[Rfam]
RNA sequence: GGCAGCUUGCCCCGAUUGGGGGUGUUCACAUGCUUCAACAAAUUCUCACGUUGGUUGUCGCCCCUAUCUUGGUGGGGAUAGUCAUUGAACUAUUUGCUUAUUGGCUAGAUAAGCGAGAUGACAACUAAGCAAGUUGUCACUAGUCCACACGCUUGGAGUCGCAACAAGCGCAAAA
Number, nucleotide and partner (000 for none) at each position: 001g138002g137003c136004a135005g134006c133007u132008u131009g000010c021011c020012c019013c018014g000015a000016u000017u000018g013019g012020g011021g010022g000023u037024g036025u000026u000027c000028a000029c000030a000031u000032g000033c000034u000035u000036c024037a023038a000039c000040a000041a000042a000043u000044u000045c000046u000047c000048a000049c000050g000051u000052u127053g126054g125055u124056u123057g122058u121059c000060g000061c117062c076063c075064c074065u000066a000067u000068c000069u000070u000071g000072g000073u000074g064075g063076g062077g000078a093079u092080a091081g090082u089083c000084a000085u000086u000087g000088a000089a082090c081091u080092a079093u078094u108095u107096g106097c000098u104099u103100a000101u000102u000103g099104g098105c000106u096107a095108g094109a000110u000111a000112a000113g000114c000115g000116a000117g061118a000119u000120g000121a058122c057123a056124a055125c054126u053127a052128a000129g000130c000131a008132a007133g006134u005135u004136g003137u002138c001139a000140c000141u000142a000143g000144u000145c000146c000147a000148c000149a000150c170151g169152c168153u167154u166155g000156g000157a000158g000159u000160c000161g000162c000163a000164a000165c000166a154167a153168g152169c151170g150171c000172a000173a000174a000175a000
RNA: Enterococcus sRNA B11
Organism: Enterococcus canis